[Rfam]
RNA sequence: AGCUCGACGGGGUCGACCGCACGGGUGACGAGCAGGUAGUCCCGGAUGCAGAUGCCGUGCCGGCCCUC
Numbered sequence: 001a002g003c004u005c006g007a008c009g010g011g012g013u014c015g016a017c018c019g020c021a022c023g024g025g026u027g028a029c030g031a032g033c034a035g036g037u038a039g040u041c042c043c044g045g046a047u048g049c050a051g052a053u054g055c056c057g058u059g060c061c062g063g064c065c066c067u068c
Stems, first nucleotide, its partner, number of pairs: 004063003008059002012029002016026003035056004040052002
Rfam assigns this 68-nucleotide RNA from Amycolatopsis sp. SID8362 to the family "ASdes TB sRNA". It scores 66 bits against the family's covariance model. The base pairs follow the family's consensus structure, which is taken from published work. Rfam classes the family as a small RNA.